The record is a 188-nucleotide RNA from Lonsdalea quercina, which matches "GcvB RNA" in Rfam. NCBI's taxonomy places the organism under Bacteria, Pseudomonadati, Pseudomonadota, Gammaproteobacteria, Lonsdalea. A reference for the family is Urbanowski et al. (2000), "The gcvB gene encodes a small untranslated RNA involved in expression of the dipeptide and oligopeptide transport systems in Escherichia coli", Mol Microbiol. The match comes from Rfam's covariance-model search (107 bits). Rfam links the family to the GO terms mRNA binding and regulation of gene expression. Rfam describes the family as follows. The gcvB gene encodes a small untranslated RNA involved in expression of the dipeptide and oligopeptide transport systems in Escherichia coli. Included several unknown homologues in alignment (Bateman A pers obs). It base-pairs with SorC. This interaction triggers the degradation of GcvB by RNase E, alleviating the GcvB-mediated mRNA repression of other amino acid-related transport and metabolic genes. The base pairs follow the family's consensus structure, which is taken from published work.
RNA sequence: ACUUCCUGAGUCGGAACGAAAAGUGCGGAGGGAUGACCGAAGUACUUUUGACUUGUGGAUGUGAUGUUGUGUUUGCUAUUUACCGUCUGGAUUUCAGACAAGGUAGCUCUGCUACCUUUUCAUUUCCUGUUUUCCCUGUCUAUUCACAAGAUUGUGUAGGGCACCGCAAGAUUGCGGUGCUUUUUUUU
Numbered sequence: 001a002c003u004u005c006c007u008g009a010g011u012c013g014g015a016a017c018g019a020a021a022a023g024u025g026c027g028g029a030g031g032g033a034u035g036a037c038c039g040a041a042g043u044a045c046u047u048u049u050g051a052c053u054u055g056u057g058g059a060u061g062u063g064a065u066g067u068u069g070u071g072u073u074u075g076c077u078a079u080u081u082a083c084c085g086u087c088u089g090g091a092u093u094u095c096a097g098a099c100a101a102g103g104u105a106g107c108u109c110u111g112c113u114a115c116c117u118u119u120u121c122a123u124u125u126c127c128u129g130u131u132u133u134c135c136c137u138g139u140c141u142a143u144u145c146a147c148a149a150g151a152u153u154g155u156g157u158a159g160g161g162c163a164c165c166g167c168a169a170g171a172u173u174g175c176g177g178u179g180c181u182u183u184u185u186u187u188u
Stems, first nucleotide, its partner, number of pairs: 009053004015049002021047006031038002085099006102116006131158001133156001135154001160181008